[Rfam]
RNA sequence: UAACACAACAUCUUGGAGAACCGGACUAAUACUCCUACCGAGACUAUCCAAGUAAAAUACGUCUCUCAUACCUGGCCUGGAGGGUAGGUCAGGAAUACUAUAACUU
Number, nucleotide and partner (000 for none) at each position: 001u000002a000003a000004c000005a000006c000007a000008a000009c000010a000011u000012c000013u051014u050015g049016g048017a047018g000019a000020a000021c000022c000023g000024g000025a000026c000027u000028a000029a000030u000031a000032c000033u000034c000035c000036u000037a000038c000039c000040g065041a064042g063043a062044c061045u000046a000047u017048c016049c015050a014051a013052g000053u000054a000055a000056a000057a000058u000059a000060c000061g044062u043063c042064u041065c040066u000067c000068a000069u000070a000071c093072c092073u091074g090075g089076c088077c087078u000079g000080g000081a000082g000083g000084g000085u000086a000087g077088g076089u075090c074091a073092g072093g071094a000095a000096u000097a000098c000099u000100a000101u000102a000103a000104c000105u000106u000
This 106-nucleotide RNA sequence belongs to the Rfam family "PhotoRC-II RNA". It is one of the family's seed sequences.